[Rfam]
RNA sequence: UAUAUGGGGUUUGCGAGUGCCCCACGAGGCGCCAUGCCGAAGUUCGCGUCCUUCAUAUGACUAUCACAUAUGAACCUUAGAGGGCACGACCAUG
Numbered sequence: 001u002a003u004a005u006g007g008g009g010u011u012u013g014c015g016a017g018u019g020c021c022c023c024a025c026g027a028g029g030c031g032c033c034a035u036g037c038c039g040a041a042g043u044u045c046g047c048g049u050c051c052u053u054c055a056u057a058u059g060a061c062u063a064u065c066a067c068a069u070a071u072g073a074a075c076c077u078u079a080g081a082g083g084g085c086a087c088g089a090c091c092a093u094g
Base pairs, nucleotide, nucleotide: 005024006023007022008021009020010019046087048085049084050083051082052081053080
Notes
Shown here is a 94-nucleotide RNA sequence from Neorhizobium sp. S3-V5DH, a member of the family "chrB-a RNA".